[Rfam]
RNA sequence: ACUCUGGAGAGUUCCUGCCCUCGGGGCAGGACACCCAAGGGGAAGCUUUCCGCAGGGAAGUCAUCUCUCAGGUUAAAAGGACAGGGU
Dot-bracket structure: ((((((......((((((.......)))))).(((.(..(((...(((((.....)))))....))))..)))........))))))
Numbered sequence: 001a002c003u004c005u006g007g008a009g010a011g012u013u014c015c016u017g018c019c020c021u022c023g024g025g026g027c028a029g030g031a032c033a034c035c036c037a038a039g040g041g042g043a044a045g046c047u048u049u050c051c052g053c054a055g056g057g058a059a060g061u062c063a064u065c066u067c068u069c070a071g072g073u074u075a076a077a078a079g080g081a082c083a084g085g086g087u
Stems, first nucleotide, its partner, number of pairs: 001087006013031006033073003037068001040067003046060005
The record is an 87-nucleotide RNA sequence from Desulforamulus hydrothermalis, which matches "Glycine riboswitch aptamer" in Rfam. Its Rfam clan is "Glycine riboswitch clan". Its family is annotated with glycine biosynthetic process in the Gene Ontology.